[Rfam]
RNA: Small nucleolar RNA SNORD90
Organism: Catagonus wagneri
RNA sequence: AGUUGGAGAUUCUAAGUGUCUAAUGAUGAAUUUCAUAGGGCAGAUUCUGAGGUGAAAAUUUAAUUCACCAUUGAUACUCCUACUGUCUAAUCUGAAGACACUUGAAAACCU
Number, nucleotide and partner (000 for none) at each position: 001a000002g000003u000004u000005g000006g000007a000008g000009a000010u000011u000012c000013u104014a103015a102016g101017u100018g099019u098020c097021u096022a000023a000024u000025g000026a000027u000028g000029a000030a091031u090032u089033u000034c000035a086036u085037a081038g080039g079040g078041c000042a000043g075044a000045u000046u074047c073048u000049g071050a000051g069052g068053u067054g066055a065056a064057a000058a000059u000060u000061u000062a000063a000064u056065u055066c054067a053068c052069c051070a000071u049072u000073g047074a046075u043076a000077c000078u040079c039080c038081u037082a000083c000084u000085g036086u035087c000088u000089a032090a031091u030092c000093u000094g000095a000096a021097g020098a019099c018100a017101c016102u015103u014104g013105a000106a000107a000108a000109c000110c000111u000